[Rfam]
RNA sequence: AGAUCUCAAAUGAGGUAGGAUUACCCGCUGAAUUUAAGCAUAUAAUUAAGCGGAGGAAAAGAAACUAACAAGGAUUCCCUCAGUAACGGCGAGUGAAGCGGGAAGAGCUCAAACCGAAAAUCACUGCCGCCCCGGCAGCGAAUUGUGGUCUAGGGAGGCGUGUCUCAGUGUUCGACCCCGGCCUAAGUCCGUUGGAAGGCGGCAUCAGAGAGGGUGACAAUCCCGUCUUUGGCUGGUGUGCGUCGGCGCGUUCGAGCCGUCCUCUAAGAGUCGGGUUGCUUGGGAGUGCAGCCCUAAGUGGGUGGUAAAUUUCAUCUAAAGCUAAAUACCUGUGAGAGACCGAUAGCGAACAAGUACCGUGAGGGAAAGAUGAAAAGAACUUUGAAAAGAGAGUCAAACAGUACUUGAAAUUGCUGAGAACGAAG
Numbered sequence: 001a002g003a004u005c006u007c008a009a010a011u012g013a014g015g016u017a018g019g020a021u022u023a024c025c026c027g028c029u030g031a032a033u034u035u036a037a038g039c040a041u042a043u044a045a046u047u048a049a050g051c052g053g054a055g056g057a058a059a060a061g062a063a064a065c066u067a068a069c070a071a072g073g074a075u076u077c078c079c080u081c082a083g084u085a086a087c088g089g090c091g092a093g094u095g096a097a098g099c100g101g102g103a104a105g106a107g108c109u110c111a112a113a114c115c116g117a118a119a120a121u122c123a124c125u126g127c128c129g130c131c132c133c134g135g136c137a138g139c140g141a142a143u144u145g146u147g148g149u150c151u152a153g154g155g156a157g158g159c160g161u162g163u164c165u166c167a168g169u170g171u172u173c174g175a176c177c178c179c180g181g182c183c184u185a186a187g188u189c190c191g192u193u194g195g196a197a198g199g200c201g202g203c204a205u206c207a208g209a210g211a212g213g214g215u216g217a218c219a220a221u222c223c224c225g226u227c228u229u230u231g232g233c234u235g236g237u238g239u240g241c242g243u244c245g246g247c248g249c250g251u252u253c254g255a256g257c258c259g260u261c262c263u264c265u266a267a268g269a270g271u272c273g274g275g276u277u278g279c280u281u282g283g284g285a286g287u288g289c290a291g292c293c294c295u296a297a298g299u300g301g302g303u304g305g306u307a308a309a310u311u312u313c314a315u316c317u318a319a320a321g322c323u324a325a326a327u328a329c330c331u332g333u334g335a336g337a338g339a340c341c342g343a344u345a346g347c348g349a350a351c352a353a354g355u356a357c358c359g360u361g362a363g364g365g366a367a368a369g370a371u372g373a374a375a376a377g378a379a380c381u382u383u384g385a386a387a388a389g390a391g392a393g394u395c396a397a398a399c400a401g402u403a404c405u406u407g408a409a410a411u412u413g414c415u416g417a418g419a420a421c422g423a424a425g
Base pairs, nucleotide, nucleotide: 024055025053026052027051028050029049035042036041065072066071076103077102078101079100086094087093106323107322108321109320113149114148115147116146118144119143121141122140124138125137126136127135155264156263157261158260159259160258164256165255166254168249169248170247171246172245173242174241178236179235180234181233182232183231187203189202190201191200192199206210213223214222273294274293275292276291277290278289279288300317301316302315303314304313357364358363380391381390382389383388